[Rfam]
RNA sequence: CUGCAUAGUAAACACCCAAGUGUGCUUGGUAGCUCCAUUGGCUUUGACUCUGGGAUAAUUCUUUAUCUCUGCAUUGAAAGGAGUAUUUUAUCCUUUUAAAUGUAUUCAGAAAGUCAGCACAUCA
Numbered sequence: 001c002u003g004c005a006u007a008g009u010a011a012a013c014a015c016c017c018a019a020g021u022g023u024g025c026u027u028g029g030u031a032g033c034u035c036c037a038u039u040g041g042c043u044u045u046g047a048c049u050c051u052g053g054g055a056u057a058a059u060u061c062u063u064u065a066u067c068u069c070u071g072c073a074u075u076g077a078a079a080g081g082a083g084u085a086u087u088u089u090a091u092c093c094u095u096u097u098a099a100a101u102g103u104a105u106u107c108a109g110a111a112a113g114u115c116a117g118c119a120c121a122u123c124a
Stems, first nucleotide, its partner, number of pairs: 004054001006052003010049001013046002016041004022035001024033003057062001068110004072102004076097007
Small nucleolar RNA SNORA22: a 124-nucleotide sequence from Castor canadensis. Rfam describes the family as follows. ACA22 is a member of the H/ACA class of snoRNA that guide the sites of modification of uridines to pseudouridines. By type it is an H/ACA-box small nucleolar RNA. NCBI's taxonomy places the organism under Eukaryota, Bilateria, Chordata, Euteleostomi, Castor.